Overview: The family of this 32-nucleotide sequence from Fasciola gigantica is "Iron response element II". Rfam 15.1 lists 5,197 matches to the family in 722 species. The organism belongs to Fasciola, within Eukaryota. The family's RNA type in Rfam is cis-regulatory element. A search with the family's covariance model found it, with a score of 30 bits. About the family: IRE, TFRC, SLC40A1, SDHB, SLC11A2, CDC42BPA, ACO2, ALAS2_H.SAPIENS, CDC14A, EPAS1, ALAS2, qoxD, Hao1, NDUFS1, transferrin, Aconitate.

[Rfam]
RNA sequence: GGAUCAUCAUGAGCAGUGACUUCAUAUGAUCG
Numbered sequence: 001g002g003a004u005c006a007u008c009a010u011g012a013g014c015a016g017u018g019a020c021u022u023c024a025u026a027u028g029a030u031c032g
Stems, first nucleotide, its partner, number of pairs: 002031006009025003012021002014018001